Shown here is a 127-nucleotide RNA sequence from Acanthochromis polyacanthus, a member of the family "Small nucleolar RNA SNORA75". From the family's description: U23 belongs to the H/ACA class of snoRNAs. snoRNAs bind a number of proteins (including dyskerin, Gar1p and Nop10p in the case of the H/ACA class) to form snoRNP complexes. This class are thought to guide the sites of modification of uridines to pseudouridines by forming direct base pairing interactions with substrate RNAs. Rfam classes the family as an H/ACA-box small nucleolar RNA. Taxonomically the source falls in Acanthochromis (Eukaryota, Metazoa, Eumetazoa, Ctenosquamata).
[Rfam]
RNA sequence: GUCUUCUCAUGAGCACCGCUCUGUCCAACAGUGGCAGUGUACGGAUUCGCAUGAGAAGUAGAGCAAACUCGCAGUUAAACAGGCAGCUACCUUAGUGGGAGUUGCCCAUGUCUGAUGUGAAACACAA
Number, nucleotide and partner (000 for none) at each position: 001g000002u000003c058004u057005u056006c055007u054008c053009a000010u000011g000012a000013g050014c049015a000016c044017c043018g000019c000020u000021c037022u036023g035024u034025c033026c000027a000028a000029c000030a000031g000032u000033g025034g024035c023036a022037g021038u000039g000040u000041a000042c000043g017044g016045a000046u000047u000048c000049g014050c013051a000052u000053g008054a007055g006056a005057a004058g003059u000060a000061g000062a000063g000064c000065a000066a000067a000068c000069u120070c119071g118072c117073a116074g000075u000076u000077a000078a000079a000080c000081a000082g000083g000084c101085a000086g000087c098088u097089a096090c000091c000092u000093u000094a000095g000096u089097g088098g087099g000100a000101g084102u000103u000104g000105c000106c000107c000108a000109u000110g000111u000112c000113u000114g000115a000116u073117g072118u071119g070120a069121a000122a000123c000124a000125c000126a000127a000